[Rfam]
RNA sequence: GCACCCGGCGUGGGAGAUGCGGCGCCGGUCCGGCAAGGGACGGUGCCCGCCGCCGAAGGAGCAAGCCUUCCCCGGAAUCUCUCAGGCGCAAACGGACCGCGCAGGGUGC
Dot-bracket structure: .....(.((((((.....((((........................)))).(((((..(((....(.......)....))))).))).........)))))).).....

This 109-nucleotide sequence from Pacificimonas flava belongs to the Rfam family "Glycine riboswitch aptamer". From the family's description: This family represents the bacterial glycine riboswitch. It scores 48 bits against the family's covariance model. Lineage of the source: Bacteria > Pseudomonadota > Alphaproteobacteria > Sphingosinicellaceae > Pacificimonas.